[Rfam]
RNA: L20-Deltaproteobacteria ribosomal protein leader
RNA sequence: CGCCGUGAACUGAGGGGUCCUGUCUCCCCCUUCAGAUCCGGUUGCGGGCCAUUCUGCCCGCCGACAUCAUAAGUGAGAAGGAG
Numbered sequence: 001c002g003c004c005g006u007g008a009a010c011u012g013a014g015g016g017g018u019c020c021u022g023u024c025u026c027c028c029c030c031u032u033c034a035g036a037u038c039c040g041g042u043u044g045c046g047g048g049c050c051a052u053u054c055u056g057c058c059c060g061c062c063g064a065c066a067u068c069a070u071a072a073g074u075g076a077g078a079a080g081g082a083g
Stems, first nucleotide, its partner, number of pairs: 003041003007038002010035008